[Rfam]
RNA sequence: GGGCGGAUAGCUCAGUUGGGAGAGCGCUGCCCUUACAAGGCAGAGGUCACAGGUUCAAUCCCUGUUCCGCCUA
Numbered sequence: 001g002g003g004c005g006g007a008u009a010g011c012u013c014a015g016u017u018g019g020g021a022g023a024g025c026g027c028u029g030c031c032c033u034u035a036c037a038a039g040g041c042a043g044a045g046g047u048c049a050c051a052g053g054u055u056c057a058a059u060c061c062c063u064g065u066u067c068c069g070c071c072u073a
Base pairs, nucleotide, nucleotide: 001072002071003070004069005068006067007066010025011024012023013022027043028042029041030040031039049065050064051063052062053061
tRNA: a 73-nucleotide RNA sequence from Candidatus Nitrospira nitrificans. A search with the family's covariance model found it, with a score of 72 bits. Its family is annotated with triplet codon-amino acid adaptor activity in the Gene Ontology.